[Rfam]
RNA sequence: CGGCGGCCCAGGGCUUAGCUGUAUUGUGAGCACUGUCACUCUCGCACCUGUUCACAGUGGCUAAGUUCCGCGCCUC
Numbered sequence: 001c002g003g004c005g006g007c008c009c010a011g012g013g014c015u016u017a018g019c020u021g022u023a024u025u026g027u028g029a030g031c032a033c034u035g036u037c038a039c040u041c042u043c044g045c046a047c048c049u050g051u052u053c054a055c056a057g058u059g060g061c062u063a064a065g066u067u068c069c070g071c072g073c074c075u076c
Stems, first nucleotide, its partner, number of pairs: 011068010026055007

mir-27 microRNA precursor family: a 76-nucleotide RNA sequence from Xenopus tropicalis. NCBI's taxonomy places the organism under Eukaryota, Gnathostomata, Amphibia, Xenopus, Silurana. Rfam's curators put it in the seed alignment.